[Rfam]
Nucleotides: 072
Base pairs, nucleotide, nucleotide: 002070003069004068006066
Number, partner (000 for none) and nucleotide at each position: 001000u002070g003069g004068a005000u006066c007000a008000g009000u010000g011000a012000u013000g014000a015000c016000u017000g018000c019000u020000g021000g022000u023000g024000g025000c026000a027000u028000g029000u030000g031000a032000g033000u034000c035000a036000u037000g038000a039000a040000u041000g042000a043000u044000g045000a046000g047000u048000a049000u050000a051000u052000g053000u054000c055000u056000g057000g058000a059000a060000c061000a062000c063000u064000g065000a066006g067000c068004u069003c070002c071000a072000a